Rfam assigns this 85-nucleotide RNA sequence from Acipenser ruthenus to the family "mir-15 microRNA precursor family". Taxonomically the source falls in Acipenser (Eukaryota, Deuterostomia, Vertebrata, Teleostomi). A search with the family's covariance model found it, with a score of 58 bits. Its family is annotated with miRNA-mediated post-transcriptional gene silencing and RISC complex in the Gene Ontology. About the family: This family represents the related mir-15a and mir-15b sequences.
RNA sequence: CCUUAAAAUUCUAAAGCAGCAAAUAAUGGUUCGCAUCUUUACUAUAGUGUUGCAAACCAUGAUGUGCUGCUACAGUACUUUAAGG
Numbered sequence: 001c002c003u004u005a006a007a008a009u010u011c012u013a014a015a016g017c018a019g020c021a022a023a024u025a026a027u028g029g030u031u032c033g034c035a036u037c038u039u040u041a042c043u044a045u046a047g048u049g050u051u052g053c054a055a056a057c058c059a060u061g062a063u064g065u066g067c068u069g070c071u072a073c074a075g076u077a078c079u080u081u082a083a084g085g
Base pairs, nucleotide, nucleotide: 001085002084003083004082005081006080015071016070017069018068019067020066021065023063024062026060027059028058029057030056031055033053034052035051